Notes
This 67-nucleotide RNA sequence from Mesorhizobium japonicum belongs to the Rfam family "ybhL leader". Rfam describes the family as follows. This family is a putative regulatory RNA structure that is found upstream of an uncharacterized membrane protein in alpha-proteobacteria. The literature on the family includes a 2005 paper in Genome Biol by Corbino et al., "Evidence for a second class of S-adenosylmethionine riboswitches and other regulatory RNA motifs in alpha-proteobacteria".

Nucleotides: 067
Stems, first nucleotide, its partner, number of pairs: 014063006024055003031049004037042001
Number, partner (000 for none) and nucleotide at each position: 001000c002000a003000g004000g005000c006000a007000u008000g009000c010000u011000g012000g013000a014063g015062c016061c017060c018059c019058g020000c021000c022000a023000g024055c025054g026053g027000c028000g029000c030000c031049u032048g033047g034046g035000u036000c037042c038000g039000u040000a041000a042037g043000a044000g045000g046034c047033c048032c049031g050000a051000c052000a053026c054025c055024g056000g057000a058019c059018g060017g061016g062015g063014c064000a065000g066000a067000a